[Rfam]
Nucleotides: 161
Base pairs, nucleotide, nucleotide: 006090011087012086013085016082017081018078020076021075022074023073027070048063049062050061051060097158101157102156103155104154109149110148111147112146
Number, partner (000 for none) and nucleotide at each position: 001000c002000a003000g004000u005000a006090c007000a008000g009000u010000g011087g012086c013085u014000g015000a016082a017081c018078c019000a020076a021075a022074g023073g024000c025000a026000u027070a028000a029000u030000u031000a032000u033000a034000g035000c036000c037000u038000u039000g040000u041000a042000u043000u044000u045000g046000a047000u048063a049062g050061g051060a052000c053000u054000u055000u056000g057000u058000c059000u060051u061050c062049c063048u064000g065000g066000a067000g068000a069000a070027u071000c072000a073023c074022c075021u076020u077000a078018g079000g080000u081017g082016u083000a084000a085013a086012g087011c088000u089000g090006g091000a092000a093000a094000u095000a096000u097158u098000u099000c100000g101157u102156c103155u104154u105000u106000a107000a108000a109149u110148u111147c112146c113000a114000u115000c116000u117000c118000u119000u120000a121000g122000u123000u124000u125000u126000c127000c128000a129000u130000u131000u132000u133000g134000u135000u136000g137000c138000a139000c140000u141000u142000u143000a144000g145000a146112g147111g148110g149109a150000c151000a152000c153000u154104a155103a156102g157101a158097a159000u160000g161000u

The family of this 161-nucleotide RNA from Vombatus ursinus is "ODC internal ribosome entry site (IRES)". Gene Ontology term of the family: ribosome binding. The match comes from Rfam's covariance-model search (74 bits). Pairs were carried over by alignment from the consensus structure, which was predicted with mfold. Taxonomically the source falls in Vombatus (Eukaryota, Opisthokonta, Chordata, Gnathostomata).